Record summary:
The record is a 109-nucleotide sequence from Zea mays, which matches "MIR5565 microRNA precursor family" in Rfam. The organism belongs to Zea, within Eukaryota.

RNA sequence: ACUCUAAUAUUCACCCCAACCCACAUGUAUUGAUGCGGAUUGGGGUGUAAGUUAAACUAAUUUACACCCCAAUCCACUUCGAUACAUGUGGAUCGAGAUGGAUACUAGA
Dot-bracket structure: ...(((.((((((...(.(.((((((((((((..(.(((((((.(((.................))).))))))).)..)))))))))))).).)...)))))).))).